[Rfam]
The family of this 350-nucleotide sequence from Streptococcus sp. X16XC17 is "transfer-messenger RNA". By type it is a non-coding RNA gene. The family's consensus secondary structure is taken from published work. From the family's description: Bacterial tmRNA, also known as 10Sa RNA or SsrA, is named for its dual tRNA and mRNA-like properties. Its role is to liberate the mRNA from a stalled ribosome. The match comes from Rfam's covariance-model search (168 bits).
RNA sequence: GGGGUCGUUACGGAUUCGACAGGCAUUAUGAGGCUUGUUAUGCAACUCAUCGGCAGAUGUAAAAUUGCCAGUUAAAUAUAACUGCAAAAAAUACAAACUCUUACGCAUUAGCAGCCUAAACACCUGCGUGCGUGACCUGACAUAGAUUGCUUGUGUUUGUCGUUAGGUCUUAAAAUAACAAGCUACGUUGGUUUAUUGUCUAGCUAAAUCAAAAGAGAUUCAUAGACUCGCUGACUGAAGAGUUGAGUUAUGUCUCGUCAGUUCAGUUAAAGGAAAUGCAUAACCUAUAGUUGUAGACGAAUAAGUUAGCAGGUGUUUGGACGUGGGUUCGACUCCCACCGGCUCCAUGA
Numbered sequence: 001g002g003g004g005u006c007g008u009u010a011c012g013g014a015u016u017c018g019a020c021a022g023g024c025a026u027u028a029u030g031a032g033g034c035u036u037g038u039u040a041u042g043c044a045a046c047u048c049a050u051c052g053g054c055a056g057a058u059g060u061a062a063a064a065u066u067g068c069c070a071g072u073u074a075a076a077u078a079u080a081a082c083u084g085c086a087a088a089a090a091a092u093a094c095a096a097a098c099u100c101u102u103a104c105g106c107a108u109u110a111g112c113a114g115c116c117u118a119a120a121c122a123c124c125u126g127c128g129u130g131c132g133u134g135a136c137c138u139g140a141c142a143u144a145g146a147u148u149g150c151u152u153g154u155g156u157u158u159g160u161c162g163u164u165a166g167g168u169c170u171u172a173a174a175a176u177a178a179c180a181a182g183c184u185a186c187g188u189u190g191g192u193u194u195a196u197u198g199u200c201u202a203g204c205u206a207a208a209u210c211a212a213a214a215g216a217g218a219u220u221c222a223u224a225g226a227c228u229c230g231c232u233g234a235c236u237g238a239a240g241a242g243u244u245g246a247g248u249u250a251u252g253u254c255u256c257g258u259c260a261g262u263u264c265a266g267u268u269a270a271a272g273g274a275a276a277u278g279c280a281u282a283a284c285c286u287a288u289a290g291u292u293g294u295a296g297a298c299g300a301a302u303a304a305g306u307u308a309g310c311a312g313g314u315g316u317u318u319g320g321a322c323g324u325g326g327g328u329u330c331g332a333c334u335c336c337c338a339c340c341g342g343c344u345c346c347a348u349g350a
Base pairs, nucleotide, nucleotide: 001346002345003344004343005342006341007340020319021318022317023316024315025314026313027312032307033306034305035304036303037302038301039300043293044292045291046290047289048059049058050057051056053068054067055066108130111127112126113125114124134169135168136167137166138165140163141162144158145157146156147155149183150182151181152180153179154178188212189211190210191209192208193207194206195205198227199226200225201224202223230267231266232265233264234262235261236260237259238258240256241255242254245285248282323339324338325337326336327335